[Rfam]
Description
The family of this 80-nucleotide RNA sequence from Alligator mississippiensis is "Mammalian CPEB3 ribozyme". It scores 40 bits against the family's covariance model. Pairs were carried over by alignment from the consensus structure, which is taken from published work. Rfam's curators write: The mammalian CPEB3 ribozyme is a self cleaving RNA located in the second intron of the CPEB3 gene which belongs to a family of genes regulating messenger RNA polyadenylation. This ribozyme is highly conserved and found only in mammals. The CPEB3 ribozyme is structurally and biochemically related to the human hepatitis delta virus (HDV) ribozyme and the HDV ribozyme is proposed to have arisen from the human transcriptome. Its family is annotated with RNA nuclease activity in the Gene Ontology. Taxonomically the source falls in Alligator (Eukaryota, Sauria, Crocodylia, Alligatoridae).
Nucleotides: 080
Stems, first nucleotide, its partner, number of pairs: 019046003024080007031043001033041001051069007
Number, partner (000 for none) and nucleotide at each position: 001000a002000g003000a004000g005000g006000a007000c008000a009000a010000a011000a012000g013000u014000u015000c016000a017000a018000u019046g020045c021044u022000a023000u024080a025079g026078c027077a028076g029075a030074a031043g032000u033041g034000c035000u036000u037000a038000u039000g040000g041033c042000u043031u044021g045020g046019c047000c048000u049000g050000u051069c052068a053067g054066a055065u056064u057063u058000c059000a060000a061000c062000a063057a064056a065055a066054u067053c068052u069051g070000u071000g072000a073000a074030u075029u076028c077027u078026g079025c080024u